RNA: abiF RNA
RNA sequence: CCUGCCACGCCUCUCAGUGAUGCGCAAUCUGGCGGGU
Numbered sequence: 001c002c003u004g005c006c007a008c009g010c011c012u013c014u015c016a017g018u019g020a021u022g023c024g025c026a027a028u029c030u031g032g033c034g035g036g037u
Base pairs, nucleotide, nucleotide: 001036002035003034004033005032006031008024009023010022